[Rfam]
RNA sequence: UUGACAGCGUCAGGAGAGAGUUUUUCCAGAAAAAACCGCCGAAGGCGCAUGUGUCACCCCCAUUGGUGGACUGAACGCUCAGGCAAAAGGACUGGCAACCGCCC
Numbered sequence: 001u002u003g004a005c006a007g008c009g010u011c012a013g014g015a016g017a018g019a020g021u022u023u024u025u026c027c028a029g030a031a032a033a034a035a036c037c038g039c040c041g042a043a044g045g046c047g048c049a050u051g052u053g054u055c056a057c058c059c060c061c062a063u064u065g066g067u068g069g070a071c072u073g074a075a076c077g078c079u080c081a082g083g084c085a086a087a088a089g090g091a092c093u094g095g096c097a098a099c100c101g102c103c104c
Base pairs, nucleotide, nucleotide: 009096010095011094012093013092020036021035022034023033038084039083040082041080042079045078046077047076051071052070

The family of this 104-nucleotide RNA sequence from Polaromonas sp. CG9_12 is "Glycine riboswitch aptamer". NCBI's taxonomy places the organism under Bacteria, Pseudomonadati, Pseudomonadota, Burkholderiales, Polaromonas.